The record is a 60-nucleotide RNA sequence from Prosthecomicrobium pneumaticum, which matches "terC RNA" in Rfam.
RNA sequence: CUGCCAGGCCGGGCCCCUCUGGCGUCUCCGUGAUCGGAGCCGCGAUGUCGGACUGGAGAC
Numbered sequence: 001c002u003g004c005c006a007g008g009c010c011g012g013g014c015c016c017c018u019c020u021g022g023c024g025u026c027u028c029c030g031u032g033a034u035c036g037g038a039g040c041c042g043c044g045a046u047g048u049c050g051g052a053c054u055g056g057a058g059a060c
Stems, first nucleotide, its partner, number of pairs: 006054002009051004022043003026039004